[Rfam]
RNA sequence: AAUCUGUUUCAGGGCGAGGCGAAAUUCCUCACCGGUGGUAAUGAGCAUGAGCUACGAGUCCACGAGCCUUUUUGGCCGAACGGGUCAGAUCCCCGUACCGACGGUAUAGUCCGGAUGAAAGAAACACGGA
Numbered sequence: 001a002a003u004c005u006g007u008u009u010c011a012g013g014g015c016g017a018g019g020c021g022a023a024a025u026u027c028c029u030c031a032c033c034g035g036u037g038g039u040a041a042u043g044a045g046c047a048u049g050a051g052c053u054a055c056g057a058g059u060c061c062a063c064g065a066g067c068c069u070u071u072u073u074g075g076c077c078g079a080a081c082g083g084g085u086c087a088g089a090u091c092c093c094c095g096u097a098c099c100g101a102c103g104g105u106a107u108a109g110u111c112c113g114g115a116u117g118a119a120a121g122a123a124a125c126a127c128g129g130a
Base pairs, nucleotide, nucleotide: 003128005126006125007124008123009122010121017029018028019027031110032109033100034099035063036062037061038060058098059097066076067075068074080096081095082094083093084092102113103112104111
Overview: FMN riboswitch aptamer (RFN element): a 130-nucleotide sequence from Hominibacterium faecale. The family's consensus secondary structure is taken from published work.